About this RNA:
The record is a 222-nucleotide RNA sequence from Denticeps clupeoides, which matches "Small nucleolar RNA SNORA73 family" in Rfam. The family's consensus secondary structure is taken from published work. From the family's description: U17 (SNORA73A and SNORA73B) also known as E1 belongs to the H/ACA class of small nucleolar RNAs (snoRNAs). Vertebrate U17 is intron-encoded and ranges in length from 200-230 nucleotides, longer than most snoRNAs. The source organism's lineage runs through Eukaryota, Eumetazoa, Bilateria, Craniata and Denticeps. It is annotated as an H/ACA-box small nucleolar RNA. On this family, see Enright et al., RNA 1996: "5'ETS rRNA processing facilitated by four small RNAs: U14, E3, U17, and U3".

RNA sequence: CCAACGUGGACACCCCGUGAGCUGGCUCUCAUGUGGCUCUGUCCGUGUGGCGUAUGGGAGCGUAGCGCCUCGGCGCUGUGACGUACAGUCCCGUUCCGCAACGUUGGACAGCAUGCUGGUCCCCGGCCUGUAGGCUGCUGUGGACGGCGUCCCGUAUAUUCCUACACCUUCCCAGAGCCCCACGGGCCGUUACUGGGGAGGUAAACCAUGCGGUGCACAAUU
Numbered sequence: 001c002c003a004a005c006g007u008g009g010a011c012a013c014c015c016c017g018u019g020a021g022c023u024g025g026c027u028c029u030c031a032u033g034u035g036g037c038u039c040u041g042u043c044c045g046u047g048u049g050g051c052g053u054a055u056g057g058g059a060g061c062g063u064a065g066c067g068c069c070u071c072g073g074c075g076c077u078g079u080g081a082c083g084u085a086c087a088g089u090c091c092c093g094u095u096c097c098g099c100a101a102c103g104u105u106g107g108a109c110a111g112c113a114u115g116c117u118g119g120u121c122c123c124c125g126g127c128c129u130g131u132a133g134g135c136u137g138c139u140g141u142g143g144a145c146g147g148c149g150u151c152c153c154g155u156a157u158a159u160u161c162c163u164a165c166a167c168c169u170u171c172c173c174a175g176a177g178c179c180c181c182a183c184g185g186g187c188c189g190u191u192a193c194u195g196g197g198g199a200g201g202u203a204a205a206c207c208a209u210g211c212g213g214u215g216c217a218c219a220a221u222u
Stems, first nucleotide, its partner, number of pairs: 001107007008044005014036002019028003047099004056092004060086001062084002065079002152213006168200006177187004
Dot-bracket structure: ((((((((((((.((...(((....)))......))...)))))..((((.....(((((.((.((...........))...)).)..))))...)))).)))))))............................................((((((..........((((((...((((...)))).......)))))).......)))))).........